The family of this 71-nucleotide RNA sequence is "RAGATH-16 RNA". The family's consensus secondary structure is taken from published work. It is annotated as a small RNA. It is one of the family's seed sequences.
[Rfam]
RNA sequence: CUCCUACUUAUGGAGCGGCGCUGGUGCGUGAGGAUUAAACUCACGGUUCGAGCUUGUGAAUAUCCCCAGAG
Numbered sequence: 001c002u003c004c005u006a007c008u009u010a011u012g013g014a015g016c017g018g019c020g021c022u023g024g025u026g027c028g029u030g031a032g033g034a035u036u037a038a039a040c041u042c043a044c045g046g047u048u049c050g051a052g053c054u055u056g057u058g059a060a061u062a063u064c065c066c067c068a069g070a071g
Stems, first nucleotide, its partner, number of pairs: 001015004021069004027045006
Dot-bracket structure: ((((.......)))).....((((..((((((.......))))))....................))))..